[Rfam]
RNA sequence: CGGUGAUCCUCGGAAAAGUAAUCAGGGUUCUUAACCGGCACAUUGUUGUCGAAAUAAUCUUACCCUGGGGAAAGUCCCUGGAUAAUGGGCUGAAAAGUCUGCGUCGAAUAGAUGCACAGUUUUCACAAAGUUUUCAGAUAAAGGAUCCAUGAAAGCGGAAACGCCGAGUGAUACCUGUAAACACGUGAAAAUGUUCAUCAAAGAUCUAGUAACGCUUUAUAUGAAACAGAAUAGGGCUUACAGAAGGAGCACC
Numbered sequence: 001c002g003g004u005g006a007u008c009c010u011c012g013g014a015a016a017a018g019u020a021a022u023c024a025g026g027g028u029u030c031u032u033a034a035c036c037g038g039c040a041c042a043u044u045g046u047u048g049u050c051g052a053a054a055u056a057a058u059c060u061u062a063c064c065c066u067g068g069g070g071a072a073a074g075u076c077c078c079u080g081g082a083u084a085a086u087g088g089g090c091u092g093a094a095a096a097g098u099c100u101g102c103g104u105c106g107a108a109u110a111g112a113u114g115c116a117c118a119g120u121u122u123u124c125a126c127a128a129a130g131u132u133u134u135c136a137g138a139u140a141a142a143g144g145a146u147c148c149a150u151g152a153a154a155g156c157g158g159a160a161a162c163g164c165c166g167a168g169u170g171a172u173a174c175c176u177g178u179a180a181a182c183a184c185g186u187g188a189a190a191a192u193g194u195u196c197a198u199c200a201a202a203g204a205u206c207u208a209g210u211a212a213c214g215c216u217u218u219a220u221a222u223g224a225a226a227c228a229g230a231a232u233a234g235g236g237c238u239u240a241c242a243g244a245a246g247g248a249g250c251a252c253c
Base pairs, nucleotide, nucleotide: 002253003252004251005250007248008247009246010245015218016217017216018215019214022068023067024066025065026064027063028062036051037050038049039048040047072239073238074237076236077235078234079233088099089098090097091096100116101115102114103113104112119192120191121190123188124187125186126185132180133179135177145172146171147170156166157165158164
This 253-nucleotide RNA sequence from Panagrolaimus superbus belongs to the Rfam family "RNase MRP". The match comes from Rfam's covariance-model search (63 bits). Pairs were carried over by alignment from the consensus structure, which is taken from published work. Rfam describes the family as follows. RNase MRP is an enzymatically active ribonucleoprotein with two distinct roles in eukaryotes.